[Rfam]
RNA sequence: CAAGUAAAUAAACUCCGAGUCCCGGAUUUCUGACGUAUGGAAGCCGAUAAGCAUACGGGAAGGCGGGACCAAUGGGUAGCGCGGGUAACGGUGCUGCCUGCCUGAUUGCGAAGGAGUCCAUUAUUAUGCGGG
Numbered sequence: 001c002a003a004g005u006a007a008a009u010a011a012a013c014u015c016c017g018a019g020u021c022c023c024g025g026a027u028u029u030c031u032g033a034c035g036u037a038u039g040g041a042a043g044c045c046g047a048u049a050a051g052c053a054u055a056c057g058g059g060a061a062g063g064c065g066g067g068a069c070c071a072a073u074g075g076g077u078a079g080c081g082c083g084g085g086u087a088a089c090g091g092u093g094c095u096g097c098c099u100g101c102c103u104g105a106u107u108g109c110g111a112a113g114g115a116g117u118c119c120a121u122u123a124u125u126a127u128g129c130g131g132g
Stems, first nucleotide, its partner, number of pairs: 004125001012117005019069006027062004034057006074099009084089001100109002
About this RNA: A member of the RNA family "Molybdenum/Tungsten riboswitch aptamer (Moco RNA motif)" from Lachnospiraceae bacterium 5_1_57FAA, 132 nucleotides long. A search with the family's covariance model found it, with a score of 39 bits. The organism belongs to Lachnospiraceae, within Bacteria. For this family Rfam cites "in molybdenum cofactor and tungsten cofactor metabolism" (Regulski et al., Mol Microbiol, 2008). Rfam links the family to the GO terms molybdenum ion binding, tungstate binding and regulation of gene expression.